[Rfam]
Nucleotides: 061
Stems, first nucleotide, its partner, number of pairs: 008059001010057005018045004024039004
Number, partner (000 for none) and nucleotide at each position: 001000g002000g003000u004000a005000u006000g007000u008059u009000a010057u011056a012055u013054a014053u015000c016000c017000c018045c019044a020043c021042a022000a023000a024039u025038a026037a027036g028000c029000c030000c031000c032000g033000g034000a035000a036027c037026u038025u039024a040000u041000c042021u043020g044019u045018g046000a047000u048000u049000a050000a051000a052000a053014a054013u055012a056011u057010a058000c059008g060000a061000a